[Rfam]
This 138-nucleotide RNA sequence from Tissierella sp. P1 belongs to the Rfam family "Group II catalytic intron D1-D4-4". Its family is annotated with Group II intron splicing in the Gene Ontology. Lineage of the source: Bacteria > Bacillati > Tissierellales > Tissierellaceae > Tissierella. Pairs were carried over by alignment from the consensus structure. A reference for the family is Bonen and Vogel (2001), "The ins and outs of group II introns", Trends Genet. Rfam 15.1 lists 840 matches to the family in 506 species.
RNA sequence: UUACUGAUGAGAGUUCAGUCUAGGUUAAUUGCCAAGAAGCCUAGUUGCUAUAAGACCAAUUUAAUCAGAGAUGAUUAGGUUGAAGCGUCUCGAAAAUGUGCCUUAGUGGUGCUAGAAAAGAUGCAGACCGUAACAUAA
Numbered sequence: 001u002u003a004c005u006g007a008u009g010a011g012a013g014u015u016c017a018g019u020c021u022a023g024g025u026u027a028a029u030u031g032c033c034a035a036g037a038a039g040c041c042u043a044g045u046u047g048c049u050a051u052a053a054g055a056c057c058a059a060u061u062u063a064a065u066c067a068g069a070g071a072u073g074a075u076u077a078g079g080u081u082g083a084a085g086c087g088u089c090u091c092g093a094a095a096a097u098g099u100g101c102c103u104u105a106g107u108g109g110u111g112c113u114a115g116a117a118a119a120g121a122u123g124c125a126g127a128c129c130g131u132a133a134c135a136u137a138a
Stems, first nucleotide, its partner, number of pairs: 020044005053090004057082006066073002098112005115131001